[Rfam]
The record is a 280-nucleotide RNA sequence from Ilyonectria sp. MPI-CAGE-AT-0026, which matches "A. fumigatus sRNA Afu_309" in Rfam. Rfam classes the family as a small RNA.

RNA sequence: UUUUCUUAACAUAUCACGGAUCUGUGCUCUGCGAUCCUCUGCUUAAUUGUCAGGGUCGAUUGCUUUGCAACUCGAUAACUCCAUGGAGCCAUCAACUUGUUAUGGUGUCAAUCAUCCUAUCGACAGGUCCAAGAACAACGGGUCCUUUGGCUGCCUCAUUCGUCGUCGCAAGACGGCUUGAGUGUCCGUAGCUGGAGGUACUAGAGACGCUAUAUUCCACCCCCCUUUUCCGAGACCGUCGGUUGGUGAGGUUGGGGAAAACCAUGGUCUGCCUACAUUC
Numbered sequence: 001u002u003u004u005c006u007u008a009a010c011a012u013a014u015c016a017c018g019g020a021u022c023u024g025u026g027c028u029c030u031g032c033g034a035u036c037c038u039c040u041g042c043u044u045a046a047u048u049g050u051c052a053g054g055g056u057c058g059a060u061u062g063c064u065u066u067g068c069a070a071c072u073c074g075a076u077a078a079c080u081c082c083a084u085g086g087a088g089c090c091a092u093c094a095a096c097u098u099g100u101u102a103u104g105g106u107g108u109c110a111a112u113c114a115u116c117c118u119a120u121c122g123a124c125a126g127g128u129c130c131a132a133g134a135a136c137a138a139c140g141g142g143u144c145c146u147u148u149g150g151c152u153g154c155c156u157c158a159u160u161c162g163u164c165g166u167c168g169c170a171a172g173a174c175g176g177c178u179u180g181a182g183u184g185u186c187c188g189u190a191g192c193u194g195g196a197g198g199u200a201c202u203a204g205a206g207a208c209g210c211u212a213u214a215u216u217c218c219a220c221c222c223c224c225c226u227u228u229u230c231c232g233a234g235a236c237c238g239u240c241g242g243u244u245g246g247u248g249a250g251g252u253u254g255g256g257g258a259a260a261a262c263c264a265u266g267g268u269c270u271g272c273c274u275a276c277a278u279u280c
Base pairs, nucleotide, nucleotide: 018130019129020128021127022126023125024124025123026068027067031063033061034060035059036058037055038054039053040052041051042049076122078120080119084110085109086108088106089105090104142201143200145197146196147195148194149193150192155182156181157180158179162177164175165174166173167172206273208271209268210267211266212265213264222257223256224255225254230251231250234244235243236242237241